[Rfam]
RNA sequence: CAUCCGGGUGCAGUGCGUGUGGGAGCGCACUGACGGAAUGGGAUGUCCCCCUGAUACGGGCUUUCACCGCUACCGGUGCCCGACGGUCGCGCGGU
Dot-bracket structure: (((((.....(((((((........)))))))........)))))....................(((((.((((........))))...)))))
RNA: Rhodo-rpoB RNA
Organism: Pontivivens ytuae